[Rfam]
RNA sequence: UCUGUGGAGAGUUAUACCAAACUAGAGUAAACAUUAGUUGAAAUAGGACUUGAUGAAACAGAAA
Dot-bracket structure: (((((...(((((........(((.....(((....)))....))))))))......)))))..
A member of the RNA family "RAGATH-18 RNA", 64 nucleotides long. The sequence is in the family's curated seed alignment. It is annotated as a small RNA.